Rfam assigns this 141-nucleotide sequence from Terrihabitans soli to the family "Alphaproteobacterial sRNA BjrC1505".
RNA sequence: UCGCUCGUUAACGUAGCAUUAAGCUUUCUGAGUUAUUUACAUACUGUAUCCAGGUUUCUGGAUUUCGGAGCGGCACCGCGCCGCUCUGUUUGACGCCUCCCUGUCAUCAGACUAGAGCCGCCCCCCGGCGGCUCUUUUUUA
Numbered sequence: 001u002c003g004c005u006c007g008u009u010a011a012c013g014u015a016g017c018a019u020u021a022a023g024c025u026u027u028c029u030g031a032g033u034u035a036u037u038u039a040c041a042u043a044c045u046g047u048a049u050c051c052a053g054g055u056u057u058c059u060g061g062a063u064u065u066c067g068g069a070g071c072g073g074c075a076c077c078g079c080g081c082c083g084c085u086c087u088g089u090u091u092g093a094c095g096c097c098u099c100c101c102u103g104u105c106a107u108c109a110g111a112c113u114a115g116a117g118c119c120g121c122c123c124c125c126c127g128g129c130g131g132c133u134c135u136u137u138u139u140u141a
Stems, first nucleotide, its partner, number of pairs: 003042001006013001015037002020035003025030001048063004068086006092105004114135009

Pairs were carried over by alignment from the consensus structure. A reference for the family is Madhugiri et al. (2012), "Small RNAs of the Bradyrhizobium/Rhodopseudomonas lineage and their analysis", RNA Biol. Rfam classes the family as a small RNA. A search with the family's covariance model found it, with a score of 82 bits.